This 128-nucleotide sequence from Acanthosepion pharaonis belongs to the Rfam family "U4atac minor spliceosomal RNA".
On this family, see Lorkovic et al., RNA 2005: "Evolutionary conservation of minor U12-type spliceosome between plants and humans".
Rfam 15.1 lists 1,648 matches to the family in 818 species.
A search with the family's covariance model found it, with a score of 63 bits.
Rfam describes the family as follows. U4atac is an essential component of the minor U12-type spliceosome complex which is required for removal of the rarer class of eukaryotic introns (AT-AC, U12-type).
The family's RNA type in Rfam is spliceosomal small nuclear RNA.
Its family is annotated with U4atac snRNP, pre-mRNA 5'-splice site binding and spliceosomal tri-snRNP complex assembly in the Gene Ontology.
The source organism's lineage runs through Eukaryota, Eumetazoa, Mollusca, Decapodiformes and Acanthosepion.
RNA sequence: ACCGUCCUUGUCUCGGGUUGGGAGCUUGCUCAAGGAAGUACAACUGAGGGCAAGACUGCUGACACCAAUGCAAGAGUAAAUUUCCGCACUGCGUCCCCCACGGGGUCGUCGGGUGCAAUUUUGGAAUU
Numbered sequence: 001a002c003c004g005u006c007c008u009u010g011u012c013u014c015g016g017g018u019u020g021g022g023a024g025c026u027u028g029c030u031c032a033a034g035g036a037a038g039u040a041c042a043a044c045u046g047a048g049g050g051c052a053a054g055a056c057u058g059c060u061g062a063c064a065c066c067a068a069u070g071c072a073a074g075a076g077u078a079a080a081u082u083u084c085c086g087c088a089c090u091g092c093g094u095c096c097c098c099c100a101c102g103g104g105g106u107c108g109u110c111g112g113g114u115g116c117a118a119u120u121u122u123g124g125a126a127u128u
Base pairs, nucleotide, nucleotide: 007017008016009015020059022057025054026053027052028051029050030049031048037045038044086116087115088114089113090112093107095105096104097103098102